Rfam assigns this 35-nucleotide sequence from Xanthomonas vasicola to the family "L31-Firmicutes ribosomal protein leader".
RNA sequence: CUCUGUGGUAAAAAUUGCUCAACAGGGCAAAGGAG
Numbered sequence: 001c002u003c004u005g006u007g008g009u010a011a012a013a014a015u016u017g018c019u020c021a022a023c024a025g026g027g028c029a030a031a032g033g034a035g
Base pairs, nucleotide, nucleotide: 001027002026003025004024005023007019008018009017010016011015
By type it is a cis-regulatory leader. The sequence is in the family's curated seed alignment.